[Rfam]
RNA sequence: ACUGAUGUCUUACCAGGCAAGGUUAGAUCUGGCUAUUUUGUCUAAUACUGUCUGGUAAUGCCGUUGAU
Number, nucleotide and partner (000 for none) at each position: 001a000002c000003u066004g065005a064006u063007g062008u000009c060010u058011u057012a056013c055014c054015a053016g052017g051018c050019a049020a000021g000022g046023u045024u044025a043026g042027a041028u000029c000030u000031g000032g000033c000034u000035a000036u000037u000038u000039u000040g000041u027042c026043u025044a024045a023046u022047a000048c000049u019050g018051u017052c016053u015054g014055g013056u012057a011058a010059u000060g009061c000062c007063g006064u005065u004066g003067a000068u000

This 68-nucleotide RNA from Microcaecilia unicolor belongs to the Rfam family "mir-8/mir-141/mir-200 microRNA precursor family". On this family, see Lagos-Quintana et al., RNA 2003: "New microRNAs from mouse and human". Clan: mir-8 microRNA precursor clan. Rfam 15.1 lists 2,669 matches to the family in 883 species.